[Rfam]
RNA sequence: GGCUGGUCUGAUGGUAGUGGGUUAACAGAACUUACUAACUUUAGUGUCACUAAAGUUGUUGUACAACCCCCACUGCUUAAUUUGACAGAGUAUAA
Numbered sequence: 001g002g003c004u005g006g007u008c009u010g011a012u013g014g015u016a017g018u019g020g021g022u023u024a025a026c027a028g029a030a031c032u033u034a035c036u037a038a039c040u041u042u043a044g045u046g047u048c049a050c051u052a053a054a055g056u057u058g059u060u061g062u063a064c065a066a067c068c069c070c071c072a073c074u075g076c077u078u079a080a081u082u083u084g085a086c087a088g089a090g091u092a093u094a095a
Stems, first nucleotide, its partner, number of pairs: 002091003006086003010083002016074006026061003030057001
Dot-bracket structure: .(((.(((.((....((((((....(((.(..........................).))).......)))))).......)))))..)))....

This 95-nucleotide RNA from Theropithecus gelada belongs to the Rfam family "Y RNA".
The family's consensus secondary structure is taken from published work.
NCBI's taxonomy places the organism under Eukaryota, Metazoa, Sarcopterygii, Cercopithecoidea, Theropithecus.